[Rfam]
RNA sequence: GGUUCAUGAUGACAUGGGACCUUGUCUGAAUAUAAUGAUUUCAGAAUUUGAGCUUAAGUUUACAAUCUGAAAUC
Numbered sequence: 001g002g003u004u005c006a007u008g009a010u011g012a013c014a015u016g017g018g019a020c021c022u023u024g025u026c027u028g029a030a031u032a033u034a035a036u037g038a039u040u041u042c043a044g045a046a047u048u049u050g051a052g053c054u055u056a057a058g059u060u061u062a063c064a065a066u067c068u069g070a071a072a073u074c
Stems, first nucleotide, its partner, number of pairs: 001074004
Shown here is a 74-nucleotide RNA from Sciurus carolinensis, a member of the family "Small nucleolar RNA SNORD107". On this family, see Runte et al., Hum Mol Genet 2001: "The IC-SNURF-SNRPN transcript serves as a host for multiple small nucleolar RNA species and as an antisense RNA for UBE3A". Rfam 15.1 lists 144 matches to the family in 129 species.